[Rfam]
RNA sequence: GUUCCUGUUAUCCUACCACUUUUCAAUGUCUAGGUUAAGUGGCUGUGCUUGUAGGAUACAGAAAAACUUGCCAUGAUCUGAGGGAAAAGCCCCAGGGAGUGGCUGGGAGAUGGGG
Dot-bracket structure: ...((((........((((...................)))).........))))..............((((..........................))))............
Small nucleolar RNA SNORA29: a 115-nucleotide RNA from Orthonyx spaldingii. For this family Rfam cites "RNomics: an experimental approach that identifies 201 candidates for novel, small, non-messenger RNAs in mouse" (Huttenhofer et al., EMBO J, 2001). The base pairs follow the family's consensus structure, which was predicted with PFOLD. A search with the family's covariance model found it, with a score of 51 bits. ACA29 is a member of the H/ACA class of snoRNA that guide the sites of modification of uridines to pseudouridines. NCBI's taxonomy places the organism under Eukaryota, Bilateria, Dipnotetrapodomorpha, Aves, Orthonyx. The family is grouped with related families in Rfam's "SNORA20 clan".